[Rfam]
RNA sequence: CAGUCAGGACGACCUGACACCAUAUGAGCUUUCCGGGACGACCCG
Numbered sequence: 001c002a003g004u005c006a007g008g009a010c011g012a013c014c015u016g017a018c019a020c021c022a023u024a025u026g027a028g029c030u031u032u033c034c035g036g037g038a039c040g041a042c043c044c045g
Base pairs, nucleotide, nucleotide: 003018004017005016006015007014008013034045035044036043037042
RNA: Guanidine-II riboswitch aptamer (mini-ykkC)
Organism: Pacificibacter marinus